[Rfam]
RNA: Small nucleolar RNA SNORA44
RNA sequence: ACGCAUGUUUUCCAAGGAUCAGAGCUGUGUGCGUAGCUCCUGGUUCUCCAAGAGCAUGCCAGAGGAAAUGGGGGGUCUUUGACUGUCUGGACUGACAUGUCUGGGGCAGCCACUCUACUCUCCAACAUCU
Number, nucleotide and partner (000 for none) at each position: 001a000002c000003g000004c000005a000006u000007g000008u000009u000010u000011u000012c043013c042014a000015a000016g000017g039018a038019u036020c000021a034022g000023a000024g000025c000026u000027g000028u000029g000030u000031g000032c000033g000034u021035a000036g019037c000038u018039c017040c000041u000042g013043g012044u000045u000046c000047u000048c000049c000050a000051a000052g000053a000054g000055c000056a000057u000058g000059c000060c000061a000062g000063a000064g000065g000066a000067a000068a000069u000070g123071g122072g121073g120074g119075g118076u000077c000078u000079u000080u000081g000082a000083c000084u000085g110086u109087c000088u103089g102090g101091a100092c000093u000094g000095a000096c000097a000098u000099g000100u091101c090102u089103g088104g000105g000106g000107c000108a000109g086110c085111c000112a000113c000114u000115c000116u000117a000118c075119u074120c073121u072122c071123c070124a000125a000126c000127a000128u000129c000130u000